[Rfam]
RNA sequence: CCCGAGCCUGCCGGGGCCGCGCAAGCGGAUAAGGGCGGGACACGGAUUAGUCGGGCAGUGCCGUGAUUCAGAAAAACCCCGACUGCC
Number, nucleotide and partner (000 for none) at each position: 001c015002c014003c013004g012005a000006g000007c039008c038009u037010g036011c035012c004013g003014g002015g001016g000017c000018c027019g026020c025021g000022c000023a000024a000025g020026c019027g018028g000029a000030u000031a000032a000033g000034g000035g011036c010037g009038g008039g007040a000041c065042a064043c063044g062045g061046a000047u000048u000049a000050g083051u082052c081053g080054g079055g000056c000057a000058g000059u000060g000061c045062c044063g043064u042065g041066a000067u000068u000069c000070a000071g000072a000073a000074a000075a000076a000077c000078c000079c054080c053081g052082a051083c050084u000085g000086c000087c000
Proteo-phage-1 RNA: an 87-nucleotide sequence. Rfam classes the family as a small RNA. The base pairs follow the family's consensus structure, which is taken from published work. Rfam's curators put it in the seed alignment.